The family of this 104-nucleotide RNA sequence from Alicyclobacillus acidocaldarius is "Guanidine-I riboswitch aptamer". The match comes from Rfam's covariance-model search (95 bits). The family has 100 seed sequences and 1,509 matches in Rfam 15.1. This family represents a conserved RNA structure found upstream of the ykkC and yxkD genes in Bacillus subtilis and related genes in other bacteria. The function of this family is unclear although it has been suggested that it may function to switch on efflux pumps and detoxification systems in response to harmful environmental molecules. Pairs were carried over by alignment from the consensus structure.
[Rfam]
RNA sequence: ACACAAGGUCUCUAGGGUUCCGCCGGCAGUCGCCGGGCCUGGUCCGAGAGAGGCCAGCUCUCGCAUCGUCGAGAGCCGCACGGAGGGAUAAAAGCCCGGGAGGU
Numbered sequence: 001a002c003a004c005a006a007g008g009u010c011u012c013u014a015g016g017g018u019u020c021c022g023c024c025g026g027c028a029g030u031c032g033c034c035g036g037g038c039c040u041g042g043u044c045c046g047a048g049a050g051a052g053g054c055c056a057g058c059u060c061u062c063g064c065a066u067c068g069u070c071g072a073g074a075g076c077c078g079c080a081c082g083g084a085g086g087g088a089u090a091a092a093a094g095c096c097c098g099g100g101a102g103g104u
Stems, first nucleotide, its partner, number of pairs: 007055006015045002020042002022039001023036005057076007079099001081102001085097003